[Rfam]
RNA sequence: UAGUGAAAUGAUGGAAAUCAUCUUUUGGAACUGACCUGAAAUGGAGAGAAUAUUUGUUGCUGUUCACUU
Number, nucleotide and partner (000 for none) at each position: 001u000002a068003g067004u066005g065006a064007a000008a000009u000010g000011a000012u000013g000014g000015a000016a000017a000018u000019c000020a000021u000022c000023u000024u000025u000026u000027g000028g000029a000030a000031c000032u000033g000034a000035c000036c000037u000038g000039a000040a000041a000042u000043g000044g000045a000046g000047a000048g000049a000050a000051u000052a000053u000054u000055u000056g000057u000058u000059g000060c000061u000062g000063u000064u006065c005066a004067c003068u002069u000